RNA sequence: UCUCGGGCUGUGACCCUCUAAAGGGAAGCGCUUUCUGUUGUGUGAAAGAAAACGAAGCGCUUCUCUUUGGAGCGUUACAGUUUGAGA
Numbered sequence: 001u002c003u004c005g006g007g008c009u010g011u012g013a014c015c016c017u018c019u020a021a022a023g024g025g026a027a028g029c030g031c032u033u034u035c036u037g038u039u040g041u042g043u044g045a046a047a048g049a050a051a052a053c054g055a056a057g058c059g060c061u062u063c064u065c066u067u068u069g070g071a072g073c074g075u076u077a078c079a080g081u082u083u084g085a086g087a
Stems, first nucleotide, its partner, number of pairs: 001087005007081008016072003020068015038052002
RNA: mir-515 microRNA precursor family
Organism: Cercocebus atys